The record is an 89-nucleotide RNA sequence from Aerolutibacter daejeonensis, which matches "c-di-GMP-I riboswitch aptamer" in Rfam. The match comes from Rfam's covariance-model search (38 bits).

RNA sequence: GGUACGAAAUGGCACGGCUGGCGUAGCCAGCUUCGCAAAGCUUCGGGUCCGGACGCUCAGGAGGAGUGGCGGGCGGCCGGGUUACCUCA
Numbered sequence: 001g002g003u004a005c006g007a008a009a010u011g012g013c014a015c016g017g018c019u020g021g022c023g024u025a026g027c028c029a030g031c032u033u034c035g036c037a038a039a040g041c042u043u044c045g046g047g048u049c050c051g052g053a054c055g056c057u058c059a060g061g062a063g064g065a066g067u068g069g070c071g072g073g074c075g076g077c078c079g080g081g082u083u084a085c086c087u088c089a
Stems, first nucleotide, its partner, number of pairs: 012036002017031006039083004044079003047074003054068004